Overview: A member of the RNA family "Small nucleolar RNA F1/F2/snoR5a" from Miscanthus lutarioriparius, 145 nucleotides long. The family's consensus secondary structure was predicted with PFOLD. Rfam classes the family as an H/ACA-box small nucleolar RNA. About the family: This family contains F1, F2 and snoR5a sequences, all of which are members of the the H/ACA class of snoRNA that guide the sites of modification of uridines to pseudouridines. The source organism's lineage runs through Eukaryota, Liliopsida, Andropogonodae, Andropogoneae and Miscanthus.

RNA sequence: CAAUGCCAUUUGGUAUCUGACACAUGUCCUUUUUAUGUUGCUCUAGGCGGCUUGAAAUAUGGCAAAUAGCUAGGAGGAACAGAUCAUGUGACACUGGUUGCUCCUUAAUUAGCCUCCAGUUACUAGCAUAUAGCAGUUUACAUGC
Numbered sequence: 001c002a003a004u005g006c007c008a009u010u011u012g013g014u015a016u017c018u019g020a021c022a023c024a025u026g027u028c029c030u031u032u033u034u035a036u037g038u039u040g041c042u043c044u045a046g047g048c049g050g051c052u053u054g055a056a057a058u059a060u061g062g063c064a065a066a067u068a069g070c071u072a073g074g075a076g077g078a079a080c081a082g083a084u085c086a087u088g089u090g091a092c093a094c095u096g097g098u099u100g101c102u103c104c105u106u107a108a109u110u111a112g113c114c115u116c117c118a119g120u121u122a123c124u125a126g127c128a129u130a131u132a133g134c135a136g137u138u139u140a141c142a143u144g145c
Stems, first nucleotide, its partner, number of pairs: 004064006019051001021049001023047001025045002078138003082134001093120005100113003